The record is an 81-nucleotide sequence from Salmo salar, which matches "Small nucleolar RNA SNORD53/SNORD92" in Rfam.
RNA sequence: UAAAUAUGAUGAUUAUGAGAAUGGUUUCGCAAACUAUGCUGACAUUUUGUGAUGUCAUGUUUCUCUUGGCUAUCUGAUUUA
Number, nucleotide and partner (000 for none) at each position: 001u081002a080003a079004a078005u000006a000007u000008g000009a000010u000011g000012a000013u000014u000015a000016u000017g000018a000019g000020a000021a000022u000023g000024g000025u000026u000027u000028c000029g000030c000031a000032a000033a000034c000035u000036a000037u000038g000039c000040u000041g000042a000043c000044a000045u000046u000047u000048u000049g000050u000051g000052a000053u000054g000055u000056c000057a000058u000059g000060u000061u000062u000063c000064u000065c000066u000067u000068g000069g000070c000071u000072a000073u000074c000075u000076g000077a000078u004079u003080u002081a001
Its Rfam clan is "SNORD52 clan".
The organism belongs to Salmo, within Eukaryota.
Pairs were carried over by alignment from the consensus structure.
The literature on the family includes a 1996 paper in Cell by Kiss-Laszlo et al., "Site-specific ribose methylation of preribosomal RNA: a novel function for small nucleolar RNAs".